[Rfam]
RNA sequence: UAGCCGAUGAAAUUCCGGUCGCGGGAGGGGCCAAGCCCCCGUGUAGCUAGGAUAAUUGCGUAUGGCAAAAUCUGUGCGUAAAAGCGUAUCGACGAAAGUACCUGUCGGAGACAGGGCAAGCGACAUACCGGGCCGUAACACUG
Numbered sequence: 001u002a003g004c005c006g007a008u009g010a011a012a013u014u015c016c017g018g019u020c021g022c023g024g025g026a027g028g029g030g031c032c033a034a035g036c037c038c039c040c041g042u043g044u045a046g047c048u049a050g051g052a053u054a055a056u057u058g059c060g061u062a063u064g065g066c067a068a069a070a071u072c073u074g075u076g077c078g079u080a081a082a083a084g085c086g087u088a089u090c091g092a093c094g095a096a097a098g099u100a101c102c103u104g105u106c107g108g109a110g111a112c113a114g115g116g117c118a119a120g121c122g123a124c125a126u127a128c129c130g131g132g133c134c135g136u137a138a139c140a141c142u143g
Stems, first nucleotide, its partner, number of pairs: 020043005051090004056081006065072001098117001101115005120136003
Group II catalytic intron D1-D4-4: a 143-nucleotide RNA sequence from Paenibacillus rigui. On this family, see Chu et al., EMBO J 2001: "Control of branch-site choice by a group II intron". The match comes from Rfam's covariance-model search (75 bits). The family has 90 seed sequences and 840 matches in Rfam 15.1. Its family is annotated with Group II intron splicing in the Gene Ontology. Rfam's curators write: Group II introns are found in rRNA, tRNA and mRNA of organelles in fungi, plants and protists, and also in mRNA in bacteria.